[Rfam]
A member of the RNA family "mir-92 microRNA precursor family" from Chiloscyllium punctatum, 81 nucleotides long. Lineage of the source: Eukaryota > Opisthokonta > Deuterostomia > Vertebrata > Chiloscyllium. It scores 82 bits against the family's covariance model. This family represents the microRNA precursor mir-92. Human miR-92 has two predicted hairpin precursor sequences: mir-92-1 on chromosome 13 and mir-92-2 on chromosome X. miR-92 has also been cloned from mouse embryonic stem cells. The mature sequence is excised from the 3' arm of the hairpin. Its Rfam clan is "mir-92 microRNA precursor clan". Pairs were carried over by alignment from the consensus structure, which was predicted with PFOLD. For this family Rfam cites "Embryonic stem cell-specific MicroRNAs" (Houbaviy et al., Dev Cell, 2003).
RNA sequence: GUUUCUGCAUGGGUGGGGAUUAGUUGCAUUACUGGGUCUUGUGUUAACAGUAUUGCACUUGUCCCGGCCUGUGGAGGAAGA
Numbered sequence: 001g002u003u004u005c006u007g008c009a010u011g012g013g014u015g016g017g018g019a020u021u022a023g024u025u026g027c028a029u030u031a032c033u034g035g036g037u038c039u040u041g042u043g044u045u046a047a048c049a050g051u052a053u054u055g056c057a058c059u060u061g062u063c064c065c066g067g068c069c070u071g072u073g074g075a076g077g078a079a080g081a
Base pairs, nucleotide, nucleotide: 004077005076006075009072010071011070012069013068014067016065017064018063019062020061022059023058024057026056027055028054030052031051032050033049034048
Dot-bracket structure: ...(((..((((((.(((((.(((.(((.(((((.............))))).)))))).))))).))))))..)))....